[Rfam]
RNA: U2 spliceosomal RNA
RNA sequence: AUUGCUUCUUGAUCUUUCGACUAAGAUCAAGGGUAGUAUAUGUUCUUAUCAGUUUAAUAUCUGAUACAUCCUCUAUGUGAGAACAACACAUUUAGUGGAUUUUUGGAGCAGGGAGAUGGAAUAGGAGCUUGCUACAUUCACUCCACUCAUCGACCUGGUAUUGCAGUACUUCCAGGAAUGGUGUACCCCCA
Number, nucleotide and partner (000 for none) at each position: 001a000002u000003u000004g000005c000006u000007u026008c025009u024010u000011g022012a000013u020014c019015u000016u000017u000018c000019g014020a013021c000022u011023a000024a009025g008026a007027u000028c000029a000030a000031g000032g000033g000034u000035a000036g000037u000038a000039u000040a000041u000042g000043u000044u000045c000046u000047u066048a065049u064050c063051a062052g061053u000054u000055u000056a000057a000058u000059a000060u000061c052062u051063g050064a049065u048066a047067c000068a000069u083070c000071c081072u080073c079074u000075a000076u000077g000078u000079g073080a072081g071082a000083a069084c000085a000086a000087c000088a000089c000090a000091u000092u000093u000094a000095g000096u000097g000098g000099a000100u000101u000102u000103u000104u000105g000106g000107a000108g000109c000110a000111g000112g144113g143114a142115g141116a000117u000118g138119g137120a000121a000122u000123a000124g135125g000126a133127g132128c000129u000130u000131g000132c127133u126134a000135c124136a000137u119138u118139c000140a000141c115142u114143c113144c112145a000146c000147u000148c183149a182150u181151c180152g179153a000154c176155c175156u174157g173158g172159u000160a000161u000162u000163g000164c000165a000166g000167u000168a000169c000170u000171u000172c158173c157174a156175g155176g154177a000178a000179u152180g151181g150182u149183g148184u000185a000186c000187c000188c000189c000190c000191a000